RNA: Purine riboswitch aptamer
RNA sequence: AUAACAAAUUAAAUAGUGCUCCAUAUAAUCGCGAGGAAAUGGCUCGCAAGUUUCUACCUGAUCGCCGAUUCUGAUCAGACUAUGGGGUAUAGUCGACAUUUU
Numbered sequence: 001a002u003a004a005c006a007a008a009u010u011a012a013a014u015a016g017u018g019c020u021c022c023a024u025a026u027a028a029u030c031g032c033g034a035g036g037a038a039a040u041g042g043c044u045c046g047c048a049a050g051u052u053u054c055u056a057c058c059u060g061a062u063c064g065c066c067g068a069u070u071c072u073g074a075u076c077a078g079a080c081u082a083u084g085g086g087g088u089a090u091a092g093u094c095g096a097c098a099u100u101u102u
Stems, first nucleotide, its partner, number of pairs: 018088008029049001031047005058078007